[Rfam]
RNA sequence: GCCCUCUUCAACGCUGCGUUUCCAUGCUACAAACAGAGAAUGACGGCCUCCGGGCCCUCUCAAUCUCGCCUCAUCUCGCAUGUGGGAAAUUCGGAGAAAGCUUCAAAGCAAGAGAGAUACGUCUCUCUUGUGCUCGUUUUCCAUGUCUGGCGCCCUUGUGGCUCUCGACGUGUGUCUAUCGAGUCUGCCUGUGAUGGCCUGGCGUCACCCCGACGUCUGCAACAGACAUCAGAAAUCUCAGGCCCGGGAGGACCCGCGUGUAUACUUCGGGAAGACGCGGCUGUCUCUUUCUCGGUGUCCUAUGGGAAGUCGUUGCGAAGCUUGUUGCGCAAACUUGAGUGCGAUAUGCAGCGUUUGUUUUGCUUCGGCAGGAUAAAUCACACAAUUCCGAUCAUUCUGUUGAGGGC
Numbered sequence: 001g002c003c004c005u006c007u008u009c010a011a012c013g014c015u016g017c018g019u020u021u022c023c024a025u026g027c028u029a030c031a032a033a034c035a036g037a038g039a040a041u042g043a044c045g046g047c048c049u050c051c052g053g054g055c056c057c058u059c060u061c062a063a064u065c066u067c068g069c070c071u072c073a074u075c076u077c078g079c080a081u082g083u084g085g086g087a088a089a090u091u092c093g094g095a096g097a098a099a100g101c102u103u104c105a106a107a108g109c110a111a112g113a114g115a116g117a118u119a120c121g122u123c124u125c126u127c128u129u130g131u132g133c134u135c136g137u138u139u140u141c142c143a144u145g146u147c148u149g150g151c152g153c154c155c156u157u158g159u160g161g162c163u164c165u166c167g168a169c170g171u172g173u174g175u176c177u178a179u180c181g182a183g184u185c186u187g188c189c190u191g192u193g194a195u196g197g198c199c200u201g202g203c204g205u206c207a208c209c210c211c212g213a214c215g216u217c218u219g220c221a222a223c224a225g226a227c228a229u230c231a232g233a234a235a236u237c238u239c240a241g242g243c244c245c246g247g248g249a250g251g252a253c254c255c256g257c258g259u260g261u262a263u264a265c266u267u268c269g270g271g272a273a274g275a276c277g278c279g280g281c282u283g284u285c286u287c288u289u290u291c292u293c294g295g296u297g298u299c300c301u302a303u304g305g306g307a308a309g310u311c312g313u314u315g316c317g318a319a320g321c322u323u324g325u326u327g328c329g330c331a332a333a334c335u336u337g338a339g340u341g342c343g344a345u346a347u348g349c350a351g352c353g354u355u356u357g358u359u360u361u362g363c364u365u366c367g368g369c370a371g372g373a374u375a376a377a378u379c380a381c382a383c384a385a386u387u388c389c390g391a392u393c394a395u396u397c398u399g400u401u402g403a404g405g406g407c
Base pairs, nucleotide, nucleotide: 001407002406003405004404009399010398013352014351015350016349017348018347019346023082024081025080026079036067037066038065039064092390093389094388095387096386101320102319103318104317187198188197189196201217202216203215204214205213219316220315221314222313223312225310240301241300242299353378354377355376356375357374358373359372360371361370362369

Annotation:
Rfam assigns this 407-nucleotide sequence from Trichoderma asperellum to the family "Nuclear RNase P". By type it is a ribozyme. The match comes from Rfam's covariance-model search (53 bits). A reference for the family is Frank and Pace (1998), "Ribonuclease P: unity and diversity in a tRNA processing ribozyme", Annu Rev Biochem.